[Rfam]
RNA sequence: GAGACCGGAGGUUAACGCCCGACAGCGCUGUGCGCCCUCGGGCGCAAAAUUG
Number, nucleotide and partner (000 for none) at each position: 001g000002a000003g000004a000005c000006c000007g000008g000009a000010g000011g000012u000013u000014a000015a000016c044017g043018c042019c041020c040021g039022a038023c000024a000025g035026c034027g033028c032029u000030g000031u000032g028033c027034g026035c025036c000037c000038u022039c021040g020041g019042g018043c017044g016045c000046a000047a000048a000049a000050u000051u000052g000
RNA: ffh sRNA